[Rfam]
Description:
Rfam assigns this 85-nucleotide RNA sequence from Fusibacter sp. 3D3 to the family "c-di-GMP-I riboswitch aptamer".

RNA sequence: AAUUAGAGUUGGCAAACUGCUUGAAAAAGUAGGACGCAAAGCUUGGAGUCUAAGGUGUUUCUACUAUGACGGUUCAGCUGCAGUU
Numbered sequence: 001a002a003u004u005a006g007a008g009u010u011g012g013c014a015a016a017c018u019g020c021u022u023g024a025a026a027a028a029g030u031a032g033g034a035c036g037c038a039a040a041g042c043u044u045g046g047a048g049u050c051u052a053a054g055g056u057g058u059u060u061c062u063a064c065u066a067u068g069a070c071g072g073u074u075c076a077g078c079u080g081c082a083g084u085u
Stems, first nucleotide, its partner, number of pairs: 012037002017032006040079004045075003048070003055064003

The match comes from Rfam's covariance-model search (67 bits). Pairs were carried over by alignment from the consensus structure, which is taken from published work.